[Rfam]
RNA sequence: AAAAAAAGGCGGCAUUAAGGCAGGGAUAAGGCAGAGCAUGGGAUGGGGUCAUCGACGCGACGAAACCCGAAGGAAGACGCUUUUGAAGGGGAGGAGAAGAUCGGAUUUGUUGUUGUCCCUUCCCAUGCACUGCCUCUUCCCUAGCUCUUCCUUCACCUCUCCUU
Numbered sequence: 001a002a003a004a005a006a007a008g009g010c011g012g013c014a015u016u017a018a019g020g021c022a023g024g025g026a027u028a029a030g031g032c033a034g035a036g037c038a039u040g041g042g043a044u045g046g047g048g049u050c051a052u053c054g055a056c057g058c059g060a061c062g063a064a065a066c067c068c069g070a071a072g073g074a075a076g077a078c079g080c081u082u083u084u085g086a087a088g089g090g091g092a093g094g095a096g097a098a099g100a101u102c103g104g105a106u107u108u109g110u111u112g113u114u115g116u117c118c119c120u121u122c123c124c125a126u127g128c129a130c131u132g133c134c135u136c137u138u139c140c141c142u143a144g145c146u147c148u149u150c151c152u153u154c155a156c157c158u159c160u161c162c163u164u
Stems, first nucleotide, its partner, number of pairs: 018146002022142005029135006036128005042123001046118004

A member of the RNA family "MIR408 microRNA precursor family" from Phoenix dactylifera, 164 nucleotides long. For this family Rfam cites "Novel and stress-regulated microRNAs and other small RNAs from Arabidopsis" (Sunkar and Zhu, Plant Cell, 2004). Rfam links the family to the GO terms miRNA-mediated post-transcriptional gene silencing and RISC complex. The family has 8 seed sequences and 299 matches in Rfam 15.1.